RNA sequence: UUAGUGCGAAAGCUGCGAGGCUCGACACACGACAGGACCGGGUGUCUCACUACUGGGACAUCUCGAUCCUCUGUUCUCGAGCGGGAAGGUCUGAGCAUAUUUGUCCUCCUUGAUCGACUCUAGCAGGGUCCAGCGGUAAACCGCUGAGCGACGCACCAGAAAAGCGGUCCCGAGCACCUCAUUACAUACCAGUAUGUAAACGCCCAACGAUCUCUGGUCGAACGGAAGGAGGGCAGGAGCUAAACGGAUCAUGGGAAACGUCGCGAGGACAGGGCGACGGUGUCUUGGUUCCUGGCAGCGCAUCGUACGGUCUCGCAAGGGGCCUGCGCGCGCUGUUGGGCCCGUCGUCCUUGGGUGCACUUCGCAGCUUGGGGUCACGCUCUACGCGAGCAUCUCAAAACUCGAUUCAGACUAUUCUUGCCCUGC
Numbered sequence: 001u002u003a004g005u006g007c008g009a010a011a012g013c014u015g016c017g018a019g020g021c022u023c024g025a026c027a028c029a030c031g032a033c034a035g036g037a038c039c040g041g042g043u044g045u046c047u048c049a050c051u052a053c054u055g056g057g058a059c060a061u062c063u064c065g066a067u068c069c070u071c072u073g074u075u076c077u078c079g080a081g082c083g084g085g086a087a088g089g090u091c092u093g094a095g096c097a098u099a100u101u102u103g104u105c106c107u108c109c110u111u112g113a114u115c116g117a118c119u120c121u122a123g124c125a126g127g128g129u130c131c132a133g134c135g136g137u138a139a140a141c142c143g144c145u146g147a148g149c150g151a152c153g154c155a156c157c158a159g160a161a162a163a164g165c166g167g168u169c170c171c172g173a174g175c176a177c178c179u180c181a182u183u184a185c186a187u188a189c190c191a192g193u194a195u196g197u198a199a200a201c202g203c204c205c206a207a208c209g210a211u212c213u214c215u216g217g218u219c220g221a222a223c224g225g226a227a228g229g230a231g232g233g234c235a236g237g238a239g240c241u242a243a244a245c246g247g248a249u250c251a252u253g254g255g256a257a258a259c260g261u262c263g264c265g266a267g268g269a270c271a272g273g274g275c276g277a278c279g280g281u282g283u284c285u286u287g288g289u290u291c292c293u294g295g296c297a298g299c300g301c302a303u304c305g306u307a308c309g310g311u312c313u314c315g316c317a318a319g320g321g322g323c324c325u326g327c328g329c330g331c332g333c334u335g336u337u338g339g340g341c342c343c344g345u346c347g348u349c350c351u352u353g354g355g356u357g358c359a360c361u362u363c364g365c366a367g368c369u370u371g372g373g374g375u376c377a378c379g380c381u382c383u384a385c386g387c388g389a390g391c392a393u394c395u396c397a398a399a400a401c402u403c404g405a406u407u408c409a410g411a412c413u414a415u416u417c418u419u420g421c422c423c424u425g426c
Stems, first nucleotide, its partner, number of pairs: 002425003007420003012368007020082005040064003043060006091410005103270004116130005131146006148264006166250005369398007
RNA: Nuclear RNase P
Organism: Dacryopinax primogenitus